[Rfam]
RNA sequence: UGAUGGUGUCACACACAAUGCUGGGAGACGUUACCACGUGCUACCUCAUUCCGUGAUAUCAUCACCCAGCACCGCACGGGUCCGUUG
Numbered sequence: 001u002g003a004u005g006g007u008g009u010c011a012c013a014c015a016c017a018a019u020g021c022u023g024g025g026a027g028a029c030g031u032u033a034c035c036a037c038g039u040g041c042u043a044c045c046u047c048a049u050u051c052c053g054u055g056a057u058a059u060c061a062u063c064a065c066c067c068a069g070c071a072c073c074g075c076a077c078g079g080g081u082c083c084g085u086u087g
Stems, first nucleotide, its partner, number of pairs: 001087003005083002010080001019071007027063002030060001032058002035055003